[Rfam]
This 107-nucleotide RNA sequence from Plutella xylostella belongs to the Rfam family "mir-8517 microRNA precursor family". The base pairs follow the family's consensus structure, which was predicted with RNAalifold.
RNA sequence: UUAUUGGACGUUUUAGCUUUUGAACUAUUUUGUCACUAUCUGACAGAAAACAAUUUGUUCUUUGACGAGAGGGACAAAACGGUUCAAUAGUUAAAACAUUCUUUAAA
Numbered sequence: 001u002u003a004u005u006g007g008a009c010g011u012u013u014u015a016g017c018u019u020u021u022g023a024a025c026u027a028u029u030u031u032g033u034c035a036c037u038a039u040c041u042g043a044c045a046g047a048a049a050a051c052a053a054u055u056u057g058u059u060c061u062u063u064g065a066c067g068a069g070a071g072g073g074a075c076a077a078a079a080c081g082g083u084u085c086a087a088u089a090g091u092u093a094a095a096a097c098a099u100u101c102u103u104u105a106a107a
Stems, first nucleotide, its partner, number of pairs: 001106003006101001011096008020087007028079001029068001031067005049059004